[Rfam]
RNA sequence: CGGUGGGAUGGCAUACGCGGUGCGGCGAUUUGCGGAAAUCGCCGCACCGUGUAUGCCAUCCCACCGU
Numbered sequence: 001c002g003g004u005g006g007g008a009u010g011g012c013a014u015a016c017g018c019g020g021u022g023c024g025g026c027g028a029u030u031u032g033c034g035g036a037a038a039u040c041g042c043c044g045c046a047c048c049g050u051g052u053a054u055g056c057c058a059u060c061c062c063a064c065c066g067u
Stems, first nucleotide, its partner, number of pairs: 003064016020047005
Shown here is a 67-nucleotide RNA sequence from Xenopus tropicalis, a member of the family "mir-1421 microRNA precursor family". The family's consensus secondary structure was predicted with RNAalifold. Rfam 15.1 lists 110 matches to the family in 14 species.